[Rfam]
RNA sequence: CCCACCAAACCUCUCAACGAUGCUCAAAUGCGUGGGA
Numbered sequence: 001c002c003c004a005c006c007a008a009a010c011c012u013c014u015c016a017a018c019g020a021u022g023c024u025c026a027a028a029u030g031c032g033u034g035g036g037a
Base pairs, nucleotide, nucleotide: 001036002035003034004033005032008024010022